About this RNA: A member of the RNA family "Small nucleolar RNA SNORA42/SNORA80 family" from Molossus molossus, 133 nucleotides long. The members of this family belong to the H/ACA class of snoRNAs that guide the sites of modification of uridines to pseudouridines. Human ACA42 (SNORA42) was cloned from HeLa cells by immunoprecipitation with anti-GAR1 antibody. Its is predicted to guide the pseudouridylation of residues U109 and U572 of 18S rRNA. ACA42 shares the same host gene with ACA26, ACA46, ACA50. This family also includes mammalian snoRNA ACA67 (SNORA80) which was identified by computational screening and its expression in mouse experimentally verified by Northern blot and primer extension analysis. By type it is an H/ACA-box small nucleolar RNA. A reference for the family is Schattner et al. (2006), "A computational screen for mammalian pseudouridylation guide H/ACA RNAs", RNA. Pairs were carried over by alignment from the consensus structure, which was predicted with RNAalifold.

RNA sequence: GCCUGGUAAUGGGUUUCCGUGGGCCCUUCUCUGUGGGCCCUCUUGGUGUGCCCAUGCCAGAGUAAACAGCAGCCUCGAACCAUUGCCCAGCCUCCUUACCUGGGGACUGAGCACUGAAGGGGAGUGUAUAGUU
Numbered sequence: 001g002c003c004u005g006g007u008a009a010u011g012g013g014u015u016u017c018c019g020u021g022g023g024c025c026c027u028u029c030u031c032u033g034u035g036g037g038c039c040c041u042c043u044u045g046g047u048g049u050g051c052c053c054a055u056g057c058c059a060g061a062g063u064a065a066a067c068a069g070c071a072g073c074c075u076c077g078a079a080c081c082a083u084u085g086c087c088c089a090g091c092c093u094c095c096u097u098a099c100c101u102g103g104g105g106a107c108u109g110a111g112c113a114c115u116g117a118a119g120g121g122g123a124g125u126g127u128a129u130a131g132u133u
Base pairs, nucleotide, nucleotide: 001057002056004054005052006051007050008049015046016045019042021040022039023038024036025035070126071125074122075121081116082115086111088109089108090107092105093104